The record is a 205-nucleotide RNA from Oryza sativa, which matches "MIR812 microRNA precursor family" in Rfam.
The base pairs follow the family's consensus structure, which was predicted with RNAalifold.
Rfam links the family to the GO terms miRNA-mediated post-transcriptional gene silencing and RISC complex.
[Rfam]
RNA sequence: AAUAAGCGUAGCCAUGAGUUUUCUUGUCCAACUUUAAUUGUUCGUCUUAUUUAAUUUUUUUUUGAAAAAACUAAAAAACACAAGUCACGCAUAAACUACUAUUCAUGUUUUAUAAUCUAAUAACAAUAAAAAUACUAAUCAUACAAAAAUUUCAAAUAAGACGGAUGAUUAAAGUUGGACACGGAAACUCAUGGCUGCGUUUAUU
Dot-bracket structure: ..........................((((((((((((((((((((((((.........................................................................................................))))))))))))))))))))))))..........................